Overview: A member of the RNA family "Alphaproteobacteria transfer-messenger RNA" from Paramagnetospirillum magnetotacticum, 346 nucleotides long. The sequence is in the family's curated seed alignment.
RNA sequence: CGCUUUGCCGGUCGCAAGGCCGGCUAUGGCGAUAAACGUUCUUCGCAAUAAACCUAUCGGACCCGGGGGCGGUACCCGGCGCCUCCACCAGAACCCAGGACCGAUGGCCGCAGAGUGUCGGCGGUGUUGGGUUCCGGCGGGGGCGAAAUAGGAUCGACGAGGGCGUAAAGGGGGAGCUUUCGCUCGGCAUGGUUCCGCCGUUAUCGGGCCUUUGCAAUAGUUGCCAACGACAACUUUGCUCCGGUGGCUGUCGCCGCGUAAGCGGUGCCAAAAACCGACCUAAAGUCCUAGCGGGUAGCACCGCAUAGGCGGGGUUCGGAGGUACCUGGCAACAGAAACCUCCACU
Numbered sequence: 001c002g003c004u005u006u007g008c009c010g011g012u013c014g015c016a017a018g019g020c021c022g023g024c025u026a027u028g029g030c031g032a033u034a035a036a037c038g039u040u041c042u043u044c045g046c047a048a049u050a051a052a053c054c055u056a057u058c059g060g061a062c063c064c065g066g067g068g069g070c071g072g073u074a075c076c077c078g079g080c081g082c083c084u085c086c087a088c089c090a091g092a093a094c095c096c097a098g099g100a101c102c103g104a105u106g107g108c109c110g111c112a113g114a115g116u117g118u119c120g121g122c123g124g125u126g127u128u129g130g131g132u133u134c135c136g137g138c139g140g141g142g143g144c145g146a147a148a149u150a151g152g153a154u155c156g157a158c159g160a161g162g163g164c165g166u167a168a169a170g171g172g173g174g175a176g177c178u179u180u181c182g183c184u185c186g187g188c189a190u191g192g193u194u195c196c197g198c199c200g201u202u203a204u205c206g207g208g209c210c211u212u213u214g215c216a217a218u219a220g221u222u223g224c225c226a227a228c229g230a231c232a233a234c235u236u237u238g239c240u241c242c243g244g245u246g247g248c249u250g251u252c253g254c255c256g257c258g259u260a261a262g263c264g265g266u267g268c269c270a271a272a273a274a275c276c277g278a279c280c281u282a283a284a285g286u287c288c289u290a291g292c293g294g295g296u297a298g299c300a301c302c303g304c305a306u307a308g309g310c311g312g313g314g315u316u317c318g319g320a321g322g323u324a325c326c327u328g329g330c331a332a333c334a335g336a337a338a339c340c341u342c343c344a345c346u
Stems, first nucleotide, its partner, number of pairs: 007024007028184005038177007053163003057160003063079005080145007185200004191210002195207002312327004318343006
From the family's description: Bacterial tmRNA, also known as 10Sa RNA or SsrA, is named for its dual tRNA and mRNA-like properties.